[Rfam]
RNA sequence: GGGAGCCUUAGGUCCCAUAUGGGGGCGGGGCCUGAGGCACAUGGACCCAACCCAACCAUGUGCCCAAGGCCCCGCCCCCAGGAGGGACCUAAGGCUCCCGGGCCUA
Numbered sequence: 001g002g003g004a005g006c007c008u009u010a011g012g013u014c015c016c017a018u019a020u021g022g023g024g025g026c027g028g029g030g031c032c033u034g035a036g037g038c039a040c041a042u043g044g045a046c047c048c049a050a051c052c053c054a055a056c057c058a059u060g061u062g063c064c065c066a067a068g069g070c071c072c073c074g075c076c077c078c079c080a081g082g083a084g085g086g087a088c089c090u091a092a093g094g095c096u097c098c099c100g101g102g103c104c105u106a
Base pairs, nucleotide, nucleotide: 002098003097004096005095006094007093010090011089012088014086015085016084021079022078023077024076025075026074027073028072029071030070031069032068033067036065037064040060041059042058043057
The family of this 106-nucleotide RNA from Geotrypetes seraphini is "mir-8834 microRNA precursor family".
It scores 42 bits against the family's covariance model.
The organism belongs to Geotrypetes, within Eukaryota.
Pairs were carried over by alignment from the consensus structure, which was predicted with RNAalifold.